Shown here is a 76-nucleotide RNA sequence from Cnephaeus nilssonii, a member of the family "mir-9223 microRNA precursor family".
RNA sequence: GGCAGUUCUUGGGUGACAUAACCCAGAAUCAGGCUCCCUCCUCUCUGGUUGUGGGGUGCGGUACCUGGGAACCACU
Numbered sequence: 001g002g003c004a005g006u007u008c009u010u011g012g013g014u015g016a017c018a019u020a021a022c023c024c025a026g027a028a029u030c031a032g033g034c035u036c037c038c039u040c041c042u043c044u045c046u047g048g049u050u051g052u053g054g055g056g057u058g059c060g061g062u063a064c065c066u067g068g069g070a071a072c073c074a075c076u
Stems, first nucleotide, its partner, number of pairs: 002075001005072011017060001019058002022055002025052001027050007
Notes
Gene Ontology terms of the family: RISC complex and miRNA-mediated post-transcriptional gene silencing. Rfam 15.1 lists 14,641 matches to the family in 28 species. NCBI's taxonomy places the organism under Eukaryota, Eumetazoa, Eutheria, Boreoeutheria, Cnephaeus.